Rfam assigns this 102-nucleotide sequence from Scopulibacillus darangshiensis to the family "Purine riboswitch aptamer".
Pairs were carried over by alignment from the consensus structure, which is taken from published work.

RNA sequence: UGCAAAAAAGUAUAAUUCCUUCAUAUAUGCUUAAGAAUAAGGCUUAGGCGUUUCUACAAGGGCACCGUAAAUGCCCCCGCUAUGAAGGUAGCGAUCUUCUUC
Numbered sequence: 001u002g003c004a005a006a007a008a009a010g011u012a013u014a015a016u017u018c019c020u021u022c023a024u025a026u027a028u029g030c031u032u033a034a035g036a037a038u039a040a041g042g043c044u045u046a047g048g049c050g051u052u053u054c055u056a057c058a059a060g061g062g063c064a065c066c067g068u069a070a071a072u073g074c075c076c077c078c079g080c081u082a083u084g085a086a087g088g089u090a091g092c093g094a095u096c097u098u099c100u101u102c
Stems, first nucleotide, its partner, number of pairs: 018088008029049007060076005
NCBI's taxonomy places the organism under Bacteria, Bacillati, Caryophanales, Sporolactobacillaceae, Scopulibacillus.